[Rfam]
RNA sequence: GUGUGACCACCAUCACUUGGAUCGUCCGGCACGUACCCGCCGGUGAAGGGACCCACCA
Numbered sequence: 001g002u003g004u005g006a007c008c009a010c011c012a013u014c015a016c017u018u019g020g021a022u023c024g025u026c027c028g029g030c031a032c033g034u035a036c037c038c039g040c041c042g043g044u045g046a047a048g049g050g051a052c053c054c055a056c057c058a
Base pairs, nucleotide, nucleotide: 010049011048013046014045015044026043027042028041029040030039
RNA: msiK RNA
Organism: Aeromicrobium yanjiei